[Rfam]
RNA sequence: GAUAAUUGGUUGACAUGUAGACUGAAAAAACUCAUAAAGUGUGUGUUGUCUAUCAGCUUCUUCUUUCGAAAUUUACGAGAAUGCAGUUAAACUACAACACUAUAUGU
Numbered sequence: 001g002a003u004a005a006u007u008g009g010u011u012g013a014c015a016u017g018u019a020g021a022c023u024g025a026a027a028a029a030a031c032u033c034a035u036a037a038a039g040u041g042u043g044u045g046u047u048g049u050c051u052a053u054c055a056g057c058u059u060c061u062u063c064u065u066u067c068g069a070a071a072u073u074u075a076c077g078a079g080a081a082u083g084c085a086g087u088u089a090a091a092c093u094a095c096a097a098c099a100c101u102a103u104a105u106g107u
Stems, first nucleotide, its partner, number of pairs: 043100006055088004060083001062080004

Small nucleolar RNA snoR97: a 107-nucleotide sequence from Papaver somniferum. The base pairs follow the family's consensus structure, which was predicted with WAR. The literature on the family includes a 2002 paper in Curr Biol by Marker et al., "Experimental RNomics: identification of 140 candidates for small non-messenger RNAs in the plant Arabidopsis thaliana". Rfam links the family to the GO terms RNA processing and nucleolus. The family's RNA type in Rfam is H/ACA-box small nucleolar RNA.